[Rfam]
The record is a 52-nucleotide RNA sequence from Solanum lycopersicum, which matches "MIR1886 microRNA precursor family" in Rfam. Taxonomically the source falls in Solanum subgen. Lycopersicon (Eukaryota, Tracheophyta, Gunneridae, Solanum).

RNA sequence: UGAAAUGGAAUUAGCGUUUGGAUGUGCGAUUUUACACUGAUUCCAUCUCAUG
Numbered sequence: 001u002g003a004a005a006u007g008g009a010a011u012u013a014g015c016g017u018u019u020g021g022a023u024g025u026g027c028g029a030u031u032u033u034a035c036a037c038u039g040a041u042u043c044c045a046u047c048u049c050a051u052g
Base pairs, nucleotide, nucleotide: 001050002049003048005046006045007044008043009042010041011040012039013038014037016035017034018029019028020027